[Rfam]
RNA sequence: GACCAUCACCUUCAUCCACGGACCGUCGGGCACGUACCUGCCCGGAGAAGGAGAGCAAU
Numbered sequence: 001g002a003c004c005a006u007c008a009c010c011u012u013c014a015u016c017c018a019c020g021g022a023c024c025g026u027c028g029g030g031c032a033c034g035u036a037c038c039u040g041c042c043c044g045g046a047g048a049a050g051g052a053g054a055g056c057a058a059u
Stems, first nucleotide, its partner, number of pairs: 009051005015045001027044006
RNA: msiK RNA